[Rfam]
RNA: Bacterial RNase P class A
RNA sequence: CCGGGGAGCUGGGCAGCCGCGUCCUUCGUCAGGCUCUUGAUGCGCAAGGCAAAGGCCGAGGAAAGUCCGGGCUCCACGAAACAAGGGUGGCGGGUAACGCCCGCCGGGCGACUCUCGCGCAGGCGAGGGGAAGCUUAGGGAAAGUGCCACAGAGAGCAGACCGCCGAUGCCUCUUCGCGAGGCAGGCAAGGGUGAAAGGGUGCGGUAAAAGCGCACCGCGCUUCCGGUAACGGCAAGCGGCAUGGCAAACCCCACCCGGAGCAAGACCGAAUAGGGGCUGCUGGCCUUAGGCUUUCGGGCCGACAGGCGGGUCGGUUUCGGACCCAGGCAGCCCGGGUUGGUCGCUGGAGCGGCGCGGCAAUGCGUCGCCGAGAGGAAUGGCUGCCGCCGCGGCGUAAGGUCCCAGUCUUGGGAGACCACGCCAGGCACAGAACCCGGCUUACAGGCUCCCCGGCAAA
Numbered sequence: 001c002c003g004g005g006g007a008g009c010u011g012g013g014c015a016g017c018c019g020c021g022u023c024c025u026u027c028g029u030c031a032g033g034c035u036c037u038u039g040a041u042g043c044g045c046a047a048g049g050c051a052a053a054g055g056c057c058g059a060g061g062a063a064a065g066u067c068c069g070g071g072c073u074c075c076a077c078g079a080a081a082c083a084a085g086g087g088u089g090g091c092g093g094g095u096a097a098c099g100c101c102c103g104c105c106g107g108g109c110g111a112c113u114c115u116c117g118c119g120c121a122g123g124c125g126a127g128g129g130g131a132a133g134c135u136u137a138g139g140g141a142a143a144g145u146g147c148c149a150c151a152g153a154g155a156g157c158a159g160a161c162c163g164c165c166g167a168u169g170c171c172u173c174u175u176c177g178c179g180a181g182g183c184a185g186g187c188a189a190g191g192g193u194g195a196a197a198g199g200g201u202g203c204g205g206u207a208a209a210a211g212c213g214c215a216c217c218g219c220g221c222u223u224c225c226g227g228u229a230a231c232g233g234c235a236a237g238c239g240g241c242a243u244g245g246c247a248a249a250c251c252c253c254a255c256c257c258g259g260a261g262c263a264a265g266a267c268c269g270a271a272u273a274g275g276g277g278c279u280g281c282u283g284g285c286c287u288u289a290g291g292c293u294u295u296c297g298g299g300c301c302g303a304c305a306g307g308c309g310g311g312u313c314g315g316u317u318u319c320g321g322a323c324c325c326a327g328g329c330a331g332c333c334c335g336g337g338u339u340g341g342u343c344g345c346u347g348g349a350g351c352g353g354c355g356c357g358g359c360a361a362u363g364c365g366u367c368g369c370c371g372a373g374a375g376g377a378a379u380g381g382c383u384g385c386c387g388c389c390g391c392g393g394c395g396u397a398a399g400g401u402c403c404c405a406g407u408c409u410u411g412g413g414a415g416a417c418c419a420c421g422c423c424a425g426g427c428a429c430a431g432a433a434c435c436c437g438g439c440u441u442a443c444a445g446g447c448u449c450c451c452c453g454g455c456a457a458a
Base pairs, nucleotide, nucleotide: 001454002453003452004451005450006449007448008447009446010445011443012386013385014384015383016382017381018380020058021057023055024054025053026052028050029049030048063441064440065439067438068437069436070435071434072261073260074259075258081318083316085257086256087255088254089253090104091103092102093101094100105138106136107135108134109133139252140251144250145249146246147245148244161191162190163187164186165185168184169183170182171181172180173179199217200216201215202214203213204212218241219239220238221237222236223235224233225232226231265343266342267341268340275334276333277332278331279330280329310324311323312322313321350369351368352367353366354365355364356363357362